[Rfam]
RNA sequence: CUGGGUGCCGUAUGGGCCCAGUGGGAUCAGAGGGCAUCGGCUCCCUCCGGUGCCUCUCAUGUCCGAAUUGCUCACAGGAGGAUUUGGUUAUGAGAU
Numbered sequence: 001c002u003g004g005g006u007g008c009c010g011u012a013u014g015g016g017c018c019c020a021g022u023g024g025g026a027u028c029a030g031a032g033g034g035c036a037u038c039g040g041c042u043c044c045c046u047c048c049g050g051u052g053c054c055u056c057u058c059a060u061g062u063c064c065g066a067a068u069u070g071c072u073c074a075c076a077g078g079a080g081g082a083u084u085u086g087g088u089u090a091u092g093a094g095a096u
Base pairs, nucleotide, nucleotide: 001021002020003019004018005017006016008015009014031055033054034053035052036051037050038049039048040047056094057093058092059091060090061089063087064086065085066084067083068082069081071080072079073078
RNA: Repression of heat shock gene expression (ROSE) element
Organism: Novosphingobium sp. PC22D